[Rfam]
RNA sequence: GCCGAUGAGGACCGUUAGCCACGCUGAGGAUGAUGAUAAGAGGGUUAGCCGAGG
Numbered sequence: 001g002c003c004g005a006u007g008a009g010g011a012c013c014g015u016u017a018g019c020c021a022c023g024c025u026g027a028g029g030a031u032g033a034u035g036a037u038a039a040g041a042g043g044g045u046u047a048g049c050c051g052a053g054g
Base pairs, nucleotide, nucleotide: 014049015048016047017046018045019044020043024040025039
RNA: Small nucleolar RNA sR34
Organism: Pyrococcus abyssi